This 116-nucleotide RNA from Campylobacter pinnipediorum belongs to the Rfam family "Ribosomal S15 leader". The family's consensus secondary structure is taken from published work. For this family Rfam cites "Pseudoknot and translational control in the expression of the S15 ribosomal protein" (Benard et al., Biochimie, 1996). Lineage of the source: Bacteria > Pseudomonadati > Campylobacterales > Campylobacter > Campylobacter pinnipediorum. Rfam's curators write: The E. coli Ribosomal S15 gene 5' UTR can form two alternative structures. One that is a series of three hairpins, The other includes a pseudoknot. This structure causes translational regulation of the S15 protein. The alignment of this family contains only the final two hairpins which are conserved in other species, and also includes the complete region that forms the alternate structures.
RNA sequence: UUUUAUGUUUUAUUGUGAUAUAAUACCCGCUUUUAAAUCUUACCAAUCAGGAGGUCAUAAUGGCUUUGGAUUCGGCUAAAAAAGCAGAAAUAGUUGCGAAAUUCGCUAGAAAAGAU
Numbered sequence: 001u002u003u004u005a006u007g008u009u010u011u012a013u014u015g016u017g018a019u020a021u022a023a024u025a026c027c028c029g030c031u032u033u034u035a036a037a038u039c040u041u042a043c044c045a046a047u048c049a050g051g052a053g054g055u056c057a058u059a060a061u062g063g064c065u066u067u068g069g070a071u072u073c074g075g076c077u078a079a080a081a082a083a084g085c086a087g088a089a090a091u092a093g094u095u096g097c098g099a100a101a102u103u104c105g106c107u108a109g110a111a112a113a114g115a116u
Stems, first nucleotide, its partner, number of pairs: 007026002010023003047070002050067004